The family of this 129-nucleotide RNA from Caenorhabditis auriculariae is "Nematode snoRNA ceN125". By type it is an H/ACA-box small nucleolar RNA. The organism belongs to Caenorhabditis, within Eukaryota. On this family, see Jia et al., BMC Mol Biol 2007: "Systematic identification of non-coding RNA 2,2,7-trimethylguanosine cap structures in Caenorhabditis elegans". Rfam links the family to the GO terms nucleolus and RNA processing. Rfam 15.1 lists 17 matches to the family in 14 species. A search with the family's covariance model found it, with a score of 65 bits.
[Rfam]
RNA sequence: AGCCCCCACAACAACAAAUUCCAGUUGCGUUUUUCUAAUGCAGUUGUGCCGACGUUGUGGGAUACUUUCGCAGGUUUUUCGAUCCUGGUACGAGCCUUUGCGUGUACCGGUUUGCACAUUAACCUACAU
Numbered sequence: 001a002g003c004c005c006c007c008a009c010a011a012c013a014a015c016a017a018a019u020u021c022c023a024g025u026u027g028c029g030u031u032u033u034u035c036u037a038a039u040g041c042a043g044u045u046g047u048g049c050c051g052a053c054g055u056u057g058u059g060g061g062a063u064a065c066u067u068u069c070g071c072a073g074g075u076u077u078u079u080c081g082a083u084c085c086u087g088g089u090a091c092g093a094g095c096c097u098u099u100g101c102g103u104g105u106a107c108c109g110g111u112u113u114g115c116a117c118a119u120u121a122a123c124c125u126a127c128a129u
Base pairs, nucleotide, nucleotide: 005061006060007059008058009057010056011055012054022046023045024044025043026042027041028040029039030038048053073125074123075122076121078118081115082113085110086109087108088107091104092103094101095100